The family of this 66-nucleotide RNA from Clostridium tarantellae is "RAGATH-18 RNA".
The family's RNA type in Rfam is small RNA.
A search with the family's covariance model found it, with a score of 62 bits.
Rfam describes the family as follows. Actinobacteria, Firmicutes, Fusobacteria, Thermotogae (1 example).
The family's consensus secondary structure is taken from published work.

RNA sequence: CCUUUGGAGUGCUAUAUCAAAUGUUAGUAGUUCUACGGAAUGAGGACAGGUACGGUGAAGAAGGAA
Dot-bracket structure: (((((...(((((........(((.....((((....))))....))))))))......)))))..
Numbered sequence: 001c002c003u004u005u006g007g008a009g010u011g012c013u014a015u016a017u018c019a020a021a022u023g024u025u026a027g028u029a030g031u032u033c034u035a036c037g038g039a040a041u042g043a044g045g046a047c048a049g050g051u052a053c054g055g056u057g058a059a060g061a062a063g064g065a066a
Stems, first nucleotide, its partner, number of pairs: 001064005009053005022048003030041004